A member of the RNA family "Transposase-1 RNA", 59 nucleotides long. Rfam's curators put it in the seed alignment.
RNA sequence: CGUUUAGAGAUUGUCACUGCCAUUAACCACGUGAGUGGAUAUGGGAAUACAAUUGUUGA
Number, nucleotide and partner (000 for none) at each position: 001c000002g000003u000004u000005u000006a000007g000008a000009g054010a053011u052012u051013g050014u049015c000016a000017c000018u000019g000020c044021c043022a042023u041024u000025a000026a000027c038028c037029a036030c000031g000032u000033g000034a000035g000036u029037g028038g027039a000040u000041a023042u022043g021044g020045g000046a000047a000048u000049a014050c013051a012052a011053u010054u009055g000056u000057u000058g000059a000